Shown here is a 146-nucleotide RNA from Diabrotica virgifera, a member of the family "Wolbachia sRNA 46". A search with the family's covariance model found it, with a score of 65 bits. The family's RNA type in Rfam is small RNA. The source organism's lineage runs through Eukaryota, Neuropteroidea, Coleoptera, Polyphaga and Diabrotica virgifera.

RNA sequence: GAGACAUCCCAGAAUAUGGUUCAAGAAGUCGCCCACGUGAAAAGUGGGCCAAAUUUUUUUUGAACAAUUUUUUUUUAAUCAAAUUGUUAAAAAAAAUUUGGCCCACUUUUCACGUGGGCGACUUCUUGAACCAUAUUCUGGGAUGU
Numbered sequence: 001g002a003g004a005c006a007u008c009c010c011a012g013a014a015u016a017u018g019g020u021u022c023a024a025g026a027a028g029u030c031g032c033c034c035a036c037g038u039g040a041a042a043a044g045u046g047g048g049c050c051a052a053a054u055u056u057u058u059u060u061u062g063a064a065c066a067a068u069u070u071u072u073u074u075u076u077a078a079u080c081a082a083a084u085u086g087u088u089a090a091a092a093a094a095a096a097u098u099u100g101g102c103c104c105a106c107u108u109u110u111c112a113c114g115u116g117g118g119c120g121a122c123u124u125c126u127u128g129a130a131c132c133a134u135a136u137u138c139u140g141g142g143a144u145g146u
Base pairs, nucleotide, nucleotide: 009141010140011139012138013137018132019131020130021129022128023127024126025125026124027123028122029121030120031119032118033117034116035115036114037113038112039111040110041109042108043107044106045105046104047103048102049101050100